A member of the RNA family "MIR2912 microRNA precursor family" from Populus deltoides, 150 nucleotides long.
NCBI's taxonomy places the organism under Eukaryota, Streptophytina, Mesangiospermae, Saliceae, Populus.
Pairs were carried over by alignment from the consensus structure, which was predicted with RNAalifold.
RNA sequence: UCUAGAACUCGAGAUAUGGGCUGAACACUAAACAGUGUCUGGGCUGCAGGACAGAUUCGGACUUCUUCGUUGUUGCUAUAAUUUGGACUAGCAAACGGCCUUGUUAAAUCUUGGGCUCCUCAUGAAAGUUGUAGCCCUAUAUAAAGUAGA
Numbered sequence: 001u002c003u004a005g006a007a008c009u010c011g012a013g014a015u016a017u018g019g020g021c022u023g024a025a026c027a028c029u030a031a032a033c034a035g036u037g038u039c040u041g042g043g044c045u046g047c048a049g050g051a052c053a054g055a056u057u058c059g060g061a062c063u064u065c066u067u068c069g070u071u072g073u074u075g076c077u078a079u080a081a082u083u084u085g086g087a088c089u090a091g092c093a094a095a096c097g098g099c100c101u102u103g104u105u106a107a108a109u110c111u112u113g114g115g116c117u118c119c120u121c122a123u124g125a126a127a128g129u130u131g132u133a134g135c136c137c138u139a140u141a142u143a144a145a146g147u148a149g150a
Stems, first nucleotide, its partner, number of pairs: 008149002011147001014142007021134003025130001027129003035123003041119003045115001048112004054105003059100002062098002072088003